[Rfam]
RNA sequence: CUGGGACCUGGUUCAAGUAAUCCAGGAUAGGCUGUGUAGCUUAUGGUUGGCCUAUUCUUGAUUACUUGCACUAGGAUACAG
Numbered sequence: 001c002u003g004g005g006a007c008c009u010g011g012u013u014c015a016a017g018u019a020a021u022c023c024a025g026g027a028u029a030g031g032c033u034g035u036g037u038a039g040c041u042u043a044u045g046g047u048u049g050g051c052c053u054a055u056u057c058u059u060g061a062u063u064a065c066u067u068g069c070a071c072u073a074g075g076a077u078a079c080a081g
Stems, first nucleotide, its partner, number of pairs: 002080002005077001007075006014068009024058010
Dot-bracket structure: .((.(.((((((.(((((((((.((((((((((...............)))))))))).))))))))).)))))).).)).
RNA: mir-26 microRNA precursor family